Annotation: A member of the RNA family "Small nucleolar RNA SNORA28" from Xenopus laevis, 123 nucleotides long. Rfam 15.1 lists 922 matches to the family in 535 species. Rfam's curators write: ACA28 is a member of the H/ACA class of snoRNA that guide the sites of modification of uridines to pseudouridines. On this family, see Huttenhofer et al., EMBO J 2001: "RNomics: an experimental approach that identifies 201 candidates for novel, small, non-messenger RNAs in mouse". Pairs were carried over by alignment from the consensus structure, which was predicted with RNAfold. Rfam links the family to the GO terms nucleolus and RNA processing.
RNA sequence: AAGCAACACUCUGUGGCAAAUGUUAUUAGUCUUUUGCCCCAAUUUUCGCUUGCUAAAUAAAACAAGCGUAACCUAUUGCAGUAAUCUUUUUGUGAGAUGCACUGUUGUAUAAGCUUGAACAUC
Numbered sequence: 001a002a003g004c005a006a007c008a009c010u011c012u013g014u015g016g017c018a019a020a021u022g023u024u025a026u027u028a029g030u031c032u033u034u035u036g037c038c039c040c041a042a043u044u045u046u047c048g049c050u051u052g053c054u055a056a057a058u059a060a061a062a063c064a065a066g067c068g069u070a071a072c073c074u075a076u077u078g079c080a081g082u083a084a085u086c087u088u089u090u091u092g093u094g095a096g097a098u099g100c101a102c103u104g105u106u107g108u109a110u111a112a113g114c115u116u117g118a119a120c121a122u123c
Base pairs, nucleotide, nucleotide: 009048012041013040015038017036018035019034020033022031064116065115066114067113069111070110074109075108076107079104080103081102082101087097088096089095090094